This 338-nucleotide sequence from Pectobacterium atrosepticum belongs to the Rfam family "RNase E 5' UTR element". By type it is a cis-regulatory element. This family represents a conserved element found in the 5' UTR of RNase E mRNA. RNase E is a key regulatory enzyme in the pathway of mRNA degradation in E. coli that is able to auto-regulate the degradation of its own mRNA in response to changes in RNase E activity. This rne 5' UTR element acts as a sensor of cellular RNase E concentration enabling tight regulation of RNase E concentration and synthesis. The family's consensus secondary structure is taken from published work.
RNA sequence: UUUCCCACGCGGAUUUCCGAUAAACAAGGGGAAAUUGCGAAGUUACUAAAUUUGCCUGAUAACGCACACACGCAGCAAUGGCGUAAGACGUAAUGCGAAAUCAAGCAGUUAGCGGGCUGUGGAUUGCAGCUUGGCCGGCAAAUGGAAUCAGAUCUGGCGACAUUAUUCAGAAGCUGUUCCCUCAGUAAAUGCGCUGUUUUCCAUCAGGAAAUACAGGCUACCGAAACAUGCGUCUCUAUGCAGGCGACAACCGGGAGGUUGACGUCCCUGCGAUAAGCCACGAGGCCAUCGGUUCACUCCGGUCAUGCGGUUCUUUUUGUCCGCAGCUCUAUCAAUAA
Numbered sequence: 001u002u003u004c005c006c007a008c009g010c011g012g013a014u015u016u017c018c019g020a021u022a023a024a025c026a027a028g029g030g031g032a033a034a035u036u037g038c039g040a041a042g043u044u045a046c047u048a049a050a051u052u053u054g055c056c057u058g059a060u061a062a063c064g065c066a067c068a069c070a071c072g073c074a075g076c077a078a079u080g081g082c083g084u085a086a087g088a089c090g091u092a093a094u095g096c097g098a099a100a101u102c103a104a105g106c107a108g109u110u111a112g113c114g115g116g117c118u119g120u121g122g123a124u125u126g127c128a129g130c131u132u133g134g135c136c137g138g139c140a141a142a143u144g145g146a147a148u149c150a151g152a153u154c155u156g157g158c159g160a161c162a163u164u165a166u167u168c169a170g171a172a173g174c175u176g177u178u179c180c181c182u183c184a185g186u187a188a189a190u191g192c193g194c195u196g197u198u199u200u201c202c203a204u205c206a207g208g209a210a211a212u213a214c215a216g217g218c219u220a221c222c223g224a225a226a227c228a229u230g231c232g233u234c235u236c237u238a239u240g241c242a243g244g245c246g247a248c249a250a251c252c253g254g255g256a257g258g259u260u261g262a263c264g265u266c267c268c269u270g271c272g273a274u275a276a277g278c279c280a281c282g283a284g285g286c287c288a289u290c291g292g293u294u295c296a297c298u299c300c301g302g303u304c305a306u307g308c309g310g311u312u313c314u315u316u317u318u319g320u321c322c323g324c325a326g327c328u329c330u331a332u333c334a335a336u337a338a
Base pairs, nucleotide, nucleotide: 003042006039008037014032015031016030017029018028052108053107054106055105057103058102059101063097064096065095066094070091071090072089075082076081114329115328116327117326118325119324120323121322122321123320124319132305133304134303135302136301137300138299144180145179146178147177148176153171154170155169156168157167191218192217194216195215196214197213198211199210200209201208220293221292222291223290224289232286233285234284235283236282245264246263248261249260250259251258252257